[Rfam]
RNA sequence: AAGGUUCUUAUUGCAGCUGCUGACCACUGCACAAGAUUAGAACUUAGACUCUUGUGCGUGUGACAGCGGCUAUUGUGAGAAACCGUCAUCAAAUU
Number, nucleotide and partner (000 for none) at each position: 001a000002a000003g000004g000005u081006u080007c079008u078009u077010a076011u075012u000013g000014c000015a071016g070017c069018u068019g067020c066021u065022g064023a000024c062025c060026a059027c000028u058029g057030c056031a055032c054033a053034a000035g051036a050037u000038u000039a000040g000041a000042a000043c000044u000045u000046a000047g000048a000049c000050u036051c035052u000053u033054g032055u031056g030057c029058g028059u026060g025061u000062g024063a000064c022065a021066g020067c019068g018069g017070c016071u015072a000073u000074u000075g011076u010077g009078a008079g007080a006081a005082a000083c000084c000085g000086u000087c000088a000089u000090c000091a000092a000093a000094u000095u000
A member of the RNA family "mir-210 microRNA precursor family" from Megaselia scalaris, 95 nucleotides long.
A reference for the family is Cai et al. (2005), "Kaposi's sarcoma-associated herpesvirus expresses an array of viral microRNAs in latently infected cells", Proc Natl Acad Sci U S A.
A search with the family's covariance model found it, with a score of 82 bits.